[Rfam]
Nucleotides: 081
Stems, first nucleotide, its partner, number of pairs: 002080005008074002011071013025057003029053001032052002038044002
Number, partner (000 for none) and nucleotide at each position: 001000a002080c003079c004078a005077a006076a007000a008074u009073u010000c011071c012070c013069c014068a015067a016066a017065a018064c019063a020062g021061u022060g023059a024000a025057c026056a027055c028000a029053a030000u031000u032052u033051a034000a035000u036000u037000u038044a039043a040000u041000g042000a043039u044038u045000u046000a047000u048000u049000u050000a051033u052032a053029u054000a055027g056026u057025g058000u059023u060022c061021a062020c063019u064018g065017u066016u067015u068014u069013g070012g071011g072000g073009a074008a075000u076006u077005u078004u079003g080002g081000u
A member of the RNA family "mir-2763 microRNA precursor family" from Silurus meridionalis, 81 nucleotides long. NCBI's taxonomy places the organism under Eukaryota, Gnathostomata, Neopterygii, Siluriformes, Silurus. Pairs were carried over by alignment from the consensus structure, which was predicted with RNAalifold.